[Rfam]
RNA sequence: ACGCAAUGAUGAAAAGCUUUCACUCCUGACCUUCGUAACUGUGAAGGUUUCUAUACUUGGCCUGGGCUCA
Number, nucleotide and partner (000 for none) at each position: 001a068002c000003g067004c066005a000006a000007u000008g000009a000010u000011g000012a000013a000014a033015a032016g031017c000018u029019u028020u000021c000022a000023c000024u000025c000026c000027u000028g019029a018030c000031c016032u015033u014034c000035g000036u000037a000038a000039c000040u000041g000042u000043g000044a000045a000046g000047g000048u000049u000050u000051c000052u000053a000054u000055a000056c000057u000058u000059g000060g000061c000062c000063u000064g000065g000066g004067c003068u001069c000070a000

The family of this 70-nucleotide RNA sequence from Propithecus coquereli is "Small nucleolar RNA U2-30". It is annotated as a C/D-box small nucleolar RNA. The family has 21 seed sequences and 664 matches in Rfam 15.1. A reference for the family is Tycowski et al. (2004), "Guide RNAs with 5' Caps and Novel Box C/D snoRNA-like Domains for Modification of snRNAs in Metazoa", Curr Biol.